[Rfam]
RNA sequence: CAGUGUACCCUUUGAUCCUCUUUAGUUCAACCAAAUGAACUAAAAUUUUAAAAUGACACAACUUUUUGAAACCUAGUUCAUUUGUUUGAACUAUAGAAGAUCAAAAGGUACCUUG
Numbered sequence: 001c002a003g004u005g006u007a008c009c010c011u012u013u014g015a016u017c018c019u020c021u022u023u024a025g026u027u028c029a030a031c032c033a034a035a036u037g038a039a040c041u042a043a044a045a046u047u048u049u050a051a052a053a054u055g056a057c058a059c060a061a062c063u064u065u066u067u068g069a070a071a072c073c074u075a076g077u078u079c080a081u082u083u084g085u086u087u088g089a090a091c092u093a094u095a096g097a098a099g100a101u102c103a104a105a106a107g108g109u110a111c112c113u114u115g
Stems, first nucleotide, its partner, number of pairs: 002114002005111005011105007019097003023093008032084011